SAM riboswitch aptamer (S box leader): a 107-nucleotide RNA from Shouchella clausii. The source organism's lineage runs through Bacteria, Bacilli, Caryophanales, Shouchella and Shouchella clausii. The family has 457 seed sequences and 9,625 matches in Rfam 15.1. The base pairs follow the family's consensus structure, which is taken from published work.
Nucleotides: 107
Base pairs, nucleotide, nucleotide: 001107003105004104005103006102007101008100013042015041016040017039021032022031023030026078027077028076029075044069045068046067048066049065050062051061052060053059074099079096080095081094082093083092084091
Number, partner (000 for none) and nucleotide at each position: 001107g002000a003105c004104u005103u006102a007101u008100c009000a010000a011000g012000a013042g014000c015041g016040a017039c018000u019000g020000a021032g022031g023030g024000a025000u026078u027077a028076g029075g030023c031022c032021c033000a034000a035000u036000g037000a038000c039017g040016u041015c042013c043000a044069g045068c046067a047000a048066c049065c050062u051061c052060c053059c054000g055000u056000u057000a058000c059053g060052g061051g062050g063000a064000a065049g066048g067046u068045g069044c070000c071000a072000a073000u074099u075029c076028c077027u078026g079096c080095a081094g082093a083092a084091u085000g086000g087000g088000a089000u090000c091084a092083u093082u094081c095080u096079g097000a098000a099074a100008g101007a102006u103005a104004a105003g106000c107001c